[Rfam]
RNA sequence: AUCUAUUUUGUAAAUAUUUGGGGAGAUGUUAAAUUUUCUCCCCGUGCUCCCCCGUUCUUCCCUGCGGAGUGCGCUGCGCCGCCCAGCCCUGUCGCCCCCCCGGAGGUGAUCCCUCCCUCCUGCCUCCCCGCCAGCCUGACCUGUGCCUGGCUCGCGGGCCGCAGUCUCGGCCCCGGCGCGCCCCUGGCAGCUCUCGGCGCGAUG
Number, nucleotide and partner (000 for none) at each position: 001a000002u000003c000004u000005a000006u000007u000008u000009u000010g000011u000012a000013a000014a000015u000016a000017u000018u000019u000020g000021g000022g000023g040024a039025g038026a037027u000028g000029u000030u000031a000032a000033a000034u000035u000036u000037u026038c025039u024040c023041c000042c000043c073044g072045u071046g070047c069048u068049c067050c066051c000052c000053c000054g000055u000056u000057c000058u000059u000060c000061c000062c000063u000064g000065c000066g050067g049068a048069g047070u046071g045072c044073g043074c000075u000076g179077c178078g177079c176080c175081g174082c000083c000084c000085a000086g000087c000088c000089c000090u000091g000092u000093c000094g000095c000096c000097c000098c000099c000100c000101c000102g116103g115104a114105g113106g112107u000108g000109a000110u000111c000112c106113c105114u104115c103116c102117c000118u000119c000120c000121u000122g000123c000124c000125u000126c000127c158128c157129c156130g155131c154132c000133a152134g151135c150136c149137u000138g000139a000140c000141c000142u000143g000144u000145g000146c000147c000148u000149g136150g135151c134152u133153c000154g131155c130156g129157g128158g127159c000160c000161g000162c000163a000164g000165u000166c000167u000168c000169g000170g000171c000172c000173c000174c081175g080176g079177c078178g077179c076180g000181c000182c000183c000184c000185u000186g000187g000188c000189a000190g000191c000192u000193c000194u000195c000196g000197g000198c000199g000200c000201g000202a000203u000204g000
Shown here is a 204-nucleotide RNA sequence from Erinaceus europaeus, a member of the family "Mnt IRES". Its family is annotated with ribosome binding in the Gene Ontology. The source organism's lineage runs through Eukaryota, Eutheria, Laurasiatheria, Erinaceinae and Erinaceus. The sequence is in the family's curated seed alignment. On this family, see Stoneley et al., Oncogene 2001: "An internal ribosome entry segment in the 5' untranslated region of the mnt gene". Rfam classes the family as an internal ribosome entry site. This family represents the Mnt internal ribosome entry site (IRES). The family's consensus secondary structure was predicted with PFOLD.